[Rfam]
RNA sequence: GGGAUGUUGUUAUGCACUGGAUUUAUAGCGAGGUUUGGUUAACCACCAAACCUUUU
Numbered sequence: 001g002g003g004a005u006g007u008u009g010u011u012a013u014g015c016a017c018u019g020g021a022u023u024u025a026u027a028g029c030g031a032g033g034u035u036u037g038g039u040u041a042a043c044c045a046c047c048a049a050a051c052c053u054u055u056u
Stems, first nucleotide, its partner, number of pairs: 002018002005016003030054010
Shown here is a 56-nucleotide RNA sequence from Trichormus azollae, a member of the family "Cyanobacteria heterocyst sRNA". The organism belongs to Trichormus azollae, within Bacteria. A reference for the family is Brenes-Alvarez et al. (2016), "Identification of Conserved and Potentially Regulatory Small RNAs in Heterocystous Cyanobacteria", Front Microbiol. The pairing is the family consensus, mapped onto this sequence.